[Rfam]
RNA sequence: GUGCAAGUGAUGUAAACGUUUUUUUUUACCACUGAGUAAAGUGAUGUUUCCAAAGGAACCACUGAUGCAC
Numbered sequence: 001g002u003g004c005a006a007g008u009g010a011u012g013u014a015a016a017c018g019u020u021u022u023u024u025u026u027u028a029c030c031a032c033u034g035a036g037u038a039a040a041g042u043g044a045u046g047u048u049u050c051c052a053a054a055g056g057a058a059c060c061a062c063u064g065a066u067g068c069a070c
Base pairs, nucleotide, nucleotide: 001070002069003068004067005066
About this RNA: This 70-nucleotide sequence from Caloenas nicobarica belongs to the Rfam family "Small nucleolar RNA SNORD42". Rfam describes the family as follows. snoRNA U42 is found in intron 3 of the ribosomal protein L23a (RPL23a) gene in humans and is also present in mice. The family has 7 seed sequences and 848 matches in Rfam 15.1. Taxonomically the source falls in Caloenas (Eukaryota, Opisthokonta, Chordata, Archelosauria). A search with the family's covariance model found it, with a score of 51 bits.